The family of this 150-nucleotide sequence from Cannabis sativa is "Small nucleolar RNA snoR138".
The match comes from Rfam's covariance-model search (71 bits).
Lineage of the source: Eukaryota > Tracheophyta > Spermatophyta > eudicotyledons > Cannabis.
For this family Rfam cites "Mining small RNA sequencing data: a new approach to identify small nucleolar RNAs in Arabidopsis" (Chen and Wu, Nucleic Acids Res, 2009).

RNA sequence: AUUGCCCUCGAAUAACUGGAAGGUGGUCUUUUUUUAAACCCACAUUUGGUUCAGACAGGGGCAUAUAUCAUCUCGAAGCGGUUUGAGGGGAAGGAAUAGUUUGUUAUCCUUUUCCUAGGAUCUUUUUUAUAAGAUCAGCUUCAAACAUUG
Numbered sequence: 001a002u003u004g005c006c007c008u009c010g011a012a013u014a015a016c017u018g019g020a021a022g023g024u025g026g027u028c029u030u031u032u033u034u035u036a037a038a039c040c041c042a043c044a045u046u047u048g049g050u051u052c053a054g055a056c057a058g059g060g061g062c063a064u065a066u067a068u069c070a071u072c073u074c075g076a077a078g079c080g081g082u083u084u085g086a087g088g089g090g091a092a093g094g095a096a097u098a099g100u101u102u103g104u105u106a107u108c109c110u111u112u113u114c115c116u117a118g119g120a121u122c123u124u125u126u127u128u129a130u131a132a133g134a135u136c137a138g139c140u141u142c143a144a145a146c147a148u149u150g
Stems, first nucleotide, its partner, number of pairs: 003063006014051006021045001023043003075142005081121003086116003090113001091110001093108002096105001125134002
Dot-bracket structure: ..((((((.....((((((.(.(((...............))).)))))))......))))))...........(((((.(((..(((.((.((.(........).)).)..))))..)))...((......))...)))))........